[Rfam]
RNA sequence: AUGCCAGCCUCAGUAUCCCUCAGGUCCUACUCCCCAAGAGGCCAUCCCCAGGGAGCUCAUGCUGAUGGGGCCGUGAGCACGCCCUUAGCUGGCUUUUACAAGCGAAACGCCCGGAUCCAGCUCAUGGCUCCGGGCGUUUCAGU
Numbered sequence: 001a002u003g004c005c006a007g008c009c010u011c012a013g014u015a016u017c018c019c020u021c022a023g024g025u026c027c028u029a030c031u032c033c034c035c036a037a038g039a040g041g042c043c044a045u046c047c048c049c050a051g052g053g054a055g056c057u058c059a060u061g062c063u064g065a066u067g068g069g070g071c072c073g074u075g076a077g078c079a080c081g082c083c084c085u086u087a088g089c090u091g092g093c094u095u096u097u098a099c100a101a102g103c104g105a106a107a108c109g110c111c112c113g114g115a116u117c118c119a120g121c122u123c124a125u126g127g128c129u130c131c132g133g134g135c136g137u138u139u140c141a142g143u
Stems, first nucleotide, its partner, number of pairs: 001095001003093006010065007020044001023043004027038002045054003068084004109135007117127003
Shown here is a 143-nucleotide RNA from Stenotrophomonas terrae, a member of the family "Proteobacterial sRNA sX11".
The family's consensus secondary structure was predicted with CMfinder.
NCBI's taxonomy places the organism under Bacteria, Pseudomonadati, Pseudomonadota, Lysobacterales, Stenotrophomonas.
By type it is a small RNA.